[Rfam]
The family of this 173-nucleotide RNA sequence from Cyphomyrmex costatus is "U2 spliceosomal RNA". The family is grouped with related families in Rfam's "U2 clan". Taxonomically the source falls in Cyphomyrmex (Eukaryota, Neoptera, Formicidae, Attini). It scores 79 bits against the family's covariance model. The family's RNA type in Rfam is spliceosomal small nuclear RNA.

RNA sequence: UUAUUUGAUAAAAAUUAAGUGAGCUAAUCUGUUCUUAUCAGCUUAAUACAGUCCCCAUAGGGGGCUCAGUAUAUUAAUCUAUUUUUUGGGACCAGGCGAGUGCUCGGAGCUUGCUCCGACCUUGCCACGGGUCGACUCCGCAUUGCAUUGCAGCGGAGUGCGGCCCAGUGAGU
Numbered sequence: 001u002u003a004u005u006u007g008a009u010a011a012a013a014a015u016u017a018a019g020u021g022a023g024c025u026a027a028u029c030u031g032u033u034c035u036u037a038u039c040a041g042c043u044u045a046a047u048a049c050a051g052u053c054c055c056c057a058u059a060g061g062g063g064g065c066u067c068a069g070u071a072u073a074u075u076a077a078u079c080u081a082u083u084u085u086u087u088g089g090g091a092c093c094a095g096g097c098g099a100g101u102g103c104u105c106g107g108a109g110c111u112u113g114c115u116c117c118g119a120c121c122u123u124g125c126c127a128c129g130g131g132u133c134g135a136c137u138c139c140g141c142a143u144u145g146c147a148u149u150g151c152a153g154c155g156g157a158g159u160g161c162g163g164c165c166c167a168g169u170g171a172g173u
Stems, first nucleotide, its partner, number of pairs: 001008002036048003040044001050066007095126006101119001106117004129166006136158006